[Rfam]
RNA sequence: AAAGUUAAACAGACUCAUCCACGAGACACUCCUGUUGUGGAUGAGUCUGUUUAACUUUAU
Numbered sequence: 001a002a003a004g005u006u007a008a009a010c011a012g013a014c015u016c017a018u019c020c021a022c023g024a025g026a027c028a029c030u031c032c033u034g035u036u037g038u039g040g041a042u043g044a045g046u047c048u049g050u051u052u053a054a055c056u057u058u059a060u
Stems, first nucleotide, its partner, number of pairs: 001058024026033001
Rfam assigns this 60-nucleotide RNA from Gallus gallus to the family "mir-7445 microRNA precursor family".
Pairs were carried over by alignment from the consensus structure, which was predicted with RNAalifold.
It is one of the family's seed sequences.